The family of this 134-nucleotide RNA is "Small nucleolar RNA SNORA43". It is one of the family's seed sequences. Its family is annotated with RNA processing and nucleolus in the Gene Ontology. The base pairs follow the family's consensus structure, which was predicted with RNAfold. The family has 21 seed sequences and 492 matches in Rfam 15.1. Rfam classes the family as an H/ACA-box small nucleolar RNA. From the family's description: ACA43 is a member of the H/ACA class of snoRNA that guide the sites of modification of uridines to pseudouridines.
RNA sequence: GAUGCCGGACCUGCCGGCACCAUGGCUGCAGCUGCUCUGCUGCACCUGUGACCUUGGGGCAAAGAGGAAGCGGCUAUUUCUACGCUUAGUGCCCAGAACAGUGGGCACUAAGAAUGGUUUGUAGCCGGACAUUG
Numbered sequence: 001g002a003u004g005c006c007g008g009a010c011c012u013g014c015c016g017g018c019a020c021c022a023u024g025g026c027u028g029c030a031g032c033u034g035c036u037c038u039g040c041u042g043c044a045c046c047u048g049u050g051a052c053c054u055u056g057g058g059g060c061a062a063a064g065a066g067g068a069a070g071c072g073g074c075u076a077u078u079u080c081u082a083c084g085c086u087u088a089g090u091g092c093c094c095a096g097a098a099c100a101g102u103g104g105g106c107a108c109u110a111a112g113a114a115u116g117g118u119u120u121g122u123a124g125c126c127g128g129a130c131a132u133u134g
Base pairs, nucleotide, nucleotide: 003061004060005059006058007055008054022049023048024047025046072126073125074124080117081116082115085112086111090107091106092105093104094103095102